[Rfam]
RNA sequence: AGGAGGAACAACCACAGUGGCUGCGGCCAGCUCUAGAGCCCUGGAUUCAGUUCCUGCAGUAACUACAGAGCUCUCCGUCUGCAGGGGCCUGGAUGCUUCGGGGGGUG
Numbered sequence: 001a002g003g004a005g006g007a008a009c010a011a012c013c014a015c016a017g018u019g020g021c022u023g024c025g026g027c028c029a030g031c032u033c034u035a036g037a038g039c040c041c042u043g044g045a046u047u048c049a050g051u052u053c054c055u056g057c058a059g060u061a062a063c064u065a066c067a068g069a070g071c072u073c074u075c076c077g078u079c080u081g082c083a084g085g086g087g088c089c090u091g092g093a094u095g096c097u098u099c100g101g102g103g104g105g106u107g
Stems, first nucleotide, its partner, number of pairs: 002099004007094001009091002012087002019079003023075001025074002029072006037064001041059003
mir-8834 microRNA precursor family: a 107-nucleotide RNA sequence from Vulpes vulpes. A search with the family's covariance model found it, with a score of 54 bits. Taxonomically the source falls in Vulpes (Eukaryota, Vertebrata, Gnathostomata, Canidae).